[Rfam]
This 52-nucleotide RNA belongs to the Rfam family "6A RNA". The family's consensus secondary structure is taken from published work. The family's RNA type in Rfam is small RNA.
RNA sequence: UGAUUUGGUCGUAGAGCCACGACCAAGGAAAAAUAAAGAAAGCUCACUGAGA
Numbered sequence: 001u002g003a004u005u006u007g008g009u010c011g012u013a014g015a016g017c018c019a020c021g022a023c024c025a026a027g028g029a030a031a032a033a034u035a036a037a038g039a040a041a042g043c044u045c046a047c048u049g050a051g052a
Base pairs, nucleotide, nucleotide: 006025007024008023009022010021011020014045015044016043017042